This 109-nucleotide sequence from Myripristis murdjan belongs to the Rfam family "Small nucleolar RNA SNORD46". U40 is a C/D box small nucleolar RNA, also known as snoZ153 in plants. The human sequence has also been annotated in the sequence databases as U46. U40 is encoded in intron 2 of the ribosomal protein S8 gene in human, and is hypothesised to guide methylation of 2'-O-ribose residues on 28S ribosomal RNA. This family represents vertebrate U40. The pairing is the family consensus, mapped onto this sequence. The source organism's lineage runs through Eukaryota, Craniata, Actinopterygii, Neoteleostei and Myripristis.
RNA sequence: GGUGUGGAUGAUGAAAACAUGACCUUAGGUAGGUUUUUAUUUGGGCCGUUUUGGUUCAAAGCUUUGGACCUACCGAUGUUAGGAUUUGUCAUAGUUACACUGACACGCU
Numbered sequence: 001g002g003u004g005u006g007g008a009u010g011a012u013g014a015a016a017a018c019a020u021g022a023c024c025u026u027a028g029g030u031a032g033g034u035u036u037u038u039a040u041u042u043g044g045g046c047c048g049u050u051u052u053g054g055u056u057c058a059a060a061g062c063u064u065u066g067g068a069c070c071u072a073c074c075g076a077u078g079u080u081a082g083g084a085u086u087u088g089u090c091a092u093a094g095u096u097a098c099a100c101u102g103a104c105a106c107g108c109u
Stems, first nucleotide, its partner, number of pairs: 001109006
The family is grouped with related families in Rfam's "SNORD46 clan".